[Rfam]
RNA sequence: UGCCUUUGUGUUGCCCUUUCAUUUUGUUCUUGGUGAAUUGGGUGUCAACUAAGGCAUACAGUGACUCUUGUGGUUGUGUCAGAAAUUCAUCUUCACUGAUCCAUUUCUUGCCAGUCAACUUCAAGGACAAAU
Numbered sequence: 001u002g003c004c005u006u007u008g009u010g011u012u013g014c015c016c017u018u019u020c021a022u023u024u025u026g027u028u029c030u031u032g033g034u035g036a037a038u039u040g041g042g043u044g045u046c047a048a049c050u051a052a053g054g055c056a057u058a059c060a061g062u063g064a065c066u067c068u069u070g071u072g073g074u075u076g077u078g079u080c081a082g083a084a085a086u087u088c089a090u091c092u093u094c095a096c097u098g099a100u101c102c103a104u105u106u107c108u109u110g111c112c113a114g115u116c117a118a119c120u121u122c123a124a125g126g127a128c129a130a131a132u
Stems, first nucleotide, its partner, number of pairs: 002055005009047002012044004018037006067125004073119004078111002081108003084104001090099001
Shown here is a 132-nucleotide RNA from Myripristis murdjan, a member of the family "Small nucleolar RNA SNORA13". Gene Ontology terms of the family: RNA processing and nucleolus. Clan: SNORA13 clan. ACA13 is a member of the H/ACA class of snoRNA that guide the sites of modification of uridines to pseudouridines. Lineage of the source: Eukaryota > Craniata > Clupeocephala > Holocentrimorphaceae > Myripristis. It is annotated as an H/ACA-box small nucleolar RNA.